[Rfam]
RNA: Bacterial RNase P class A
Organism: Anaeromonas frigoriresistens
RNA sequence: UGAGUAAGUCAGAUGAUCGCAUGCUUUUGCAUGAGGAAAGUCCGAGCUCCGUAGGGCAAGGGUGCUGGGUAAUGCCCAGUGGGGGUGACCCCAAGGAUAGUGCAACAGAAAUAGACCGCCUGCUUAUAGCAGGUAAGGAUGGAAAGGUGAGGUAAGAGCUCACCAGCAGCUAGGCGACUAGUUGGCUCUGUAAACCCCACCCGGAGCAAGACCAAGUAGGGACCAUAUGACAAGCGGCUGCCCGUCGCUGUCCCGUAGGUAGGUUGCUGGAGUCUACUGGUAACAGUAGACCUAGAAAGAUGAUCGUCCAAUACAGAACUCGGCUUAUAGACUUACUUGUAUA
Number, nucleotide and partner (000 for none) at each position: 001u339002g338003a337004g336005u335006a334007a333008g332009u331010c330011a328012g308013a307014u306015g305016a304017u303018c302019g000020c033021a032022u031023g030024c029025u000026u000027u000028u000029g024030c023031a022032u021033g020034a000035g000036g000037a000038a326039a325040g324041u000042c323043c322044g321045a320046g319047c206048u205049c204050c203051g000052u000053a000054g000055g243056g242057c000058a000059a000060g202061g201062g200063u199064g198065c079066u078067g077068g076069g075070u000071a000072a000073u000074g000075c069076c068077c067078a066079g065080u094081g092082g091083g090084g089085g000086u000087g000088a000089c084090c083091c082092c081093a000094a080095g197096g196097a000098u000099a000100g195101u194102g191103c190104a189105a000106c000107a000108g000109a000110a000111a000112u000113a000114g000115a000116c138117c137118g134119c133120c132121u131122g130123c129124u128125u000126a000127u000128a124129g123130c122131a121132g120133g119134u118135a000136a000137g117138g116139a000140u000141g000142g000143a000144a000145a000146g164147g163148u162149g161150a160151g159152g000153u000154a000155a000156g000157a000158g000159c151160u150161c149162a148163c147164c146165a000166g186167c184168a183169g182170c181171u180172a179173g178174g000175c000176g000177a000178c173179u172180a171181g170182u169183u168184g167185g000186c166187u000188c000189u104190g103191u102192a000193a000194a101195c100196c096197c095198c064199a063200c062201c061202c060203g050204g049205a048206g047207c000208a000209a000210g265211a264212c263213c262214a000215a000216g000217u000218a000219g000220g253221g252222a251223c250224c000225a000226u000227a000228u000229g000230a000231c000232a000233a000234g248235c247236g246237g245238c244239u000240g000241c000242c056243c055244g238245u237246c236247g235248c234249u000250g223251u222252c221253c220254c000255g000256u000257a000258g000259g000260u000261a000262g213263g212264u211265u210266g000267c000268u000269g000270g000271a000272g291273u290274c289275u288276a287277c286278u285279g284280g000281u000282a000283a000284c279285a278286g277287u276288a275289g274290a273291c272292c000293u000294a000295g000296a000297a000298a000299g000300a000301u000302g018303a017304u016305c015306g014307u013308c012309c000310a000311a000312u000313a000314c000315a000316g000317a000318a000319c046320u045321c044322g043323g042324c040325u039326u038327a000328u011329a000330g010331a009332c008333u007334u006335a005336c004337u003338u002339g001340u000341a000342u000343a000